[Rfam]
RNA sequence: ACAAUAAUUGGGCAAAGCAGGUGAAAGUCUGUGACGCAAAGCUAUAGGGCCUUUGAAAUGGCAGCCAGUUGCACAA
Number, nucleotide and partner (000 for none) at each position: 001a000002c000003a000004a000005u000006a000007a000008u000009u000010g000011g000012g037013c036014a000015a000016a000017g032018c031019a030020g029021g028022u027023g000024a000025a000026a000027g022028u021029c020030u019031g018032u017033g000034a000035c000036g013037c012038a000039a000040a070041g069042c068043u067044a000045u000046a000047g066048g065049g062050c061051c060052u000053u000054u000055g000056a000057a000058a000059u000060g051061g050062c049063a000064g000065c048066c047067a043068g042069u041070u040071g000072c000073a000074c000075a000076a000